A member of the RNA family "Small nucleolar RNA SNORD98" from Pitta sordida, 65 nucleotides long. The source organism's lineage runs through Eukaryota, Chordata, Teleostomi, Aves and Pitta. It is annotated as a C/D-box small nucleolar RNA. Its family is annotated with nucleolus and RNA processing in the Gene Ontology. The literature on the family includes a 2002 paper in Mol Cell Biol by Galardi et al., "Purified box C/D snoRNPs are able to reproduce site-specific 2'-O-methylation of target RNA in vitro". Rfam 15.1 lists 571 matches to the family in 543 species.

[Rfam]
RNA sequence: GAGUGAUGAUGUUUAAACCUAUUCCAUUGCUGAAGUAAUCUGUGGAAAAAAAACCAACUGAACUC
Numbered sequence: 001g002a003g004u005g006a007u008g009a010u011g012u013u014u015a016a017a018c019c020u021a022u023u024c025c026a027u028u029g030c031u032g033a034a035g036u037a038a039u040c041u042g043u044g045g046a047a048a049a050a051a052a053a054c055c056a057a058c059u060g061a062a063c064u065c
Stems, first nucleotide, its partner, number of pairs: 001065004
Dot-bracket structure: ((((.........................................................))))